[Rfam]
RNA: Small nucleolar RNA SNORA8
Organism: Cottoperca gobio
Nucleotides: 138
Stems, first nucleotide, its partner, number of pairs: 002060006014054002017051001018046002020043009065127005070119003079108005
Number, partner (000 for none) and nucleotide at each position: 001000a002060g003059c004058a005057c006056u007055g008000u009000a010000u011000g012000g013000u014054a015053u016000c017051u018046g019045c020043a021042g022041c023040c024039a025038g026037u027036u028035g029000c030000u031000u032000c033000c034000u035028c036027a037026g038025c039024u040023g041022g042021u043020u044000a045019g046018u047000u048000c049000a050000a051017a052000a053015g054014u055007c056006g057005g058004u059003g060002c061000u062000a063000g064000a065127c066126a067125a068124a069123c070119u071118c072117a073000a074000c075000a076000a077000c078000u079108g080107g081106c082105a083104u084000c085000g086000u087000u088000g089000g090000u091000c092000u093000c094000c095000a096000u097000a098000c099000u100000g101000c102000c103000u104083g105082u106081g107080u108079u109000a110000g111000g112000a113000g114000u115000c116000c117072u118071g119070g120000u121000a122000u123069g124068u125067u126066u127065g128000u129000u130000g131000a132000a133000a134000c135000a136000c137000u138000a